[Rfam]
RNA: Archaeal large subunit ribosomal RNA, nucleotides 646 to 908
Organism: Halomicrobium mukohataei
RNA sequence: GAGUGUGCCUGUUUGGCGAGUCUAACCCGAUAAUCGGGGAAGGCAUAGGGAAACCGACAUGGCCGCAGCGCUUUGCGCAAGGGCCGCCGUCUUCAAGGGCGGGGAGUCAAACGAGCACGACCCGAAACCGGGUGAUCUACGCGUGGGCAGGGUGAAGCGUGCCGAAAGGCACGUGGAGGCCCGUUAGGGAUGGUGUCCUACAAUACCCUCCCGUGACCUACGUGUAGGGGUGAAAGGCCCAUCGAACCCGGAAACAGCUGGUU
Numbered sequence: 001g002a003g004u005g006u007g008c009c010u011g012u013u014u015g016g017c018g019a020g021u022c023u024a025a026c027c028c029g030a031u032a033a034u035c036g037g038g039g040a041a042g043g044c045a046u047a048g049g050g051a052a053a054c055c056g057a058c059a060u061g062g063c064c065g066c067a068g069c070g071c072u073u074u075g076c077g078c079a080a081g082g083g084c085c086g087c088c089g090u091c092u093u094c095a096a097g098g099g100c101g102g103g104g105a106g107u108c109a110a111a112c113g114a115g116c117a118c119g120a121c122c123c124g125a126a127a128c129c130g131g132g133u134g135a136u137c138u139a140c141g142c143g144u145g146g147g148c149a150g151g152g153u154g155a156a157g158c159g160u161g162c163c164g165a166a167a168g169g170c171a172c173g174u175g176g177a178g179g180c181c182c183g184u185u186a187g188g189g190a191u192g193g194u195g196u197c198c199u200a201c202a203a204u205a206c207c208c209u210c211c212c213g214u215g216a217c218c219u220a221c222g223u224g225u226a227g228g229g230g231u232g233a234a235a236g237g238c239c240c241a242u243c244g245a246a247c248c249c250g251g252a253a254a255c256a257g258c259u260g261g262u263u
Base pairs, nucleotide, nucleotide: 005118006117007116008115010113011112012111013110014109015108016107017106020044021043022042023041026038027037028036029035048055049054061085062084063083064082068078069077070076071075088101089100090099091098121261122260124258128251129250130249131248132247133246137227138226139225140224141223142222143221144220145219146218147217148215150182151181152180153179157174158173159172160171161170162169163168187212188211189210190209192208193207195206196205229239230238231237